The record is a 124-nucleotide RNA from Myotis lucifugus, which matches "Small nucleolar RNA SNORA28" in Rfam. Its family is annotated with RNA processing and nucleolus in the Gene Ontology. ACA28 is a member of the H/ACA class of snoRNA that guide the sites of modification of uridines to pseudouridines. By type it is an H/ACA-box small nucleolar RNA. The family has 26 seed sequences and 922 matches in Rfam 15.1. On this family, see Huttenhofer et al., EMBO J 2001: "RNomics: an experimental approach that identifies 201 candidates for novel, small, non-messenger RNAs in mouse". The family's consensus secondary structure was predicted with RNAfold.

RNA sequence: AAGCAACACUCUGUGGCAGAUGAUCGACACUGUCUGACACAAUUUGAGCUUGCUACAGCAACAAAGUCUAACCUAUUCCGGUGCUCUCCUCUAUGAGACAAGCCGUUAUAUAGACUUAGACAGU
Numbered sequence: 001a002a003g004c005a006a007c008a009c010u011c012u013g014u015g016g017c018a019g020a021u022g023a024u025c026g027a028c029a030c031u032g033u034c035u036g037a038c039a040c041a042a043u044u045u046g047a048g049c050u051u052g053c054u055a056c057a058g059c060a061a062c063a064a065a066g067u068c069u070a071a072c073c074u075a076u077u078c079c080g081g082u083g084c085u086c087u088c089c090u091c092u093a094u095g096a097g098a099c100a101a102g103c104c105g106u107u108a109u110a111u112a113g114a115c116u117u118a119g120a121c122a123g124u
Base pairs, nucleotide, nucleotide: 009048010047011046012041013040014039015038017036018035019034020033021032022031064117065116066115067114068113069112070111074110075109076108079105080104081103082102085098086097087096088095